This 102-nucleotide RNA from Capsella rubella belongs to the Rfam family "Small nucleolar RNA snoR27". Rfam links the family to the GO terms nucleolus and RNA processing. It is annotated as a C/D-box small nucleolar RNA. Its Rfam clan is "snR68 clan".
RNA sequence: AUUGGAUCGAUGAUUUAUAAGUUUAAAUACUGCGUUAUCUUUCUGCAAAUGUCCUCUUUUUAAGGAUUUGAAGAUAAACUAUAAAAACAGCUGAGAUCCAAU
Numbered sequence: 001a002u003u004g005g006a007u008c009g010a011u012g013a014u015u016u017a018u019a020a021g022u023u024u025a026a027a028u029a030c031u032g033c034g035u036u037a038u039c040u041u042u043c044u045g046c047a048a049a050u051g052u053c054c055u056c057u058u059u060u061u062a063a064g065g066a067u068u069u070g071a072a073g074a075u076a077a078a079c080u081a082u083a084a085a086a087a088c089a090g091c092u093g094a095g096a097u098c099c100a101a102u
Stems, first nucleotide, its partner, number of pairs: 001102007